[Rfam]
This 128-nucleotide RNA from Ancylostoma duodenale belongs to the Rfam family "Nematode snoRNA ceN39". Lineage of the source: Eukaryota > Rhabditida > Rhabditomorpha > Ancylostomatinae > Ancylostoma. The family's RNA type in Rfam is H/ACA-box small nucleolar RNA. The literature on the family includes a 2007 paper in BMC Mol Biol by Jia et al., "Systematic identification of non-coding RNA 2,2,7-trimethylguanosine cap structures in Caenorhabditis elegans". The family has 4 seed sequences and 95 matches in Rfam 15.1. It scores 38 bits against the family's covariance model.

RNA sequence: UUCGCGGAUAGGAACCAUGAAGCGCUGAUAUGUGCUAUGUGGGCCGAUAAACCGCGUAUAUCAAUUGAUGAUAAUGGUCGCAUUUCUAGGCCAAUGCCAUUAGUGCAUUACCAAUUCAUUGGACAUUC
Numbered sequence: 001u002u003c004g005c006g007g008a009u010a011g012g013a014a015c016c017a018u019g020a021a022g023c024g025c026u027g028a029u030a031u032g033u034g035c036u037a038u039g040u041g042g043g044c045c046g047a048u049a050a051a052c053c054g055c056g057u058a059u060a061u062c063a064a065u066u067g068a069u070g071a072u073a074a075u076g077g078u079c080g081c082a083u084u085u086c087u088a089g090g091c092c093a094a095u096g097c098c099a100u101u102a103g104u105g106c107a108u109u110a111c112c113a114a115u116u117c118a119u120u121g122g123a124c125a126u127u128c
Base pairs, nucleotide, nucleotide: 003056004055005054006053007052011045012044015042016041017040018039019038021036022035023034024033025032067120068119069118070117071116076112077111078110080106081105083103084102087099089098090097091096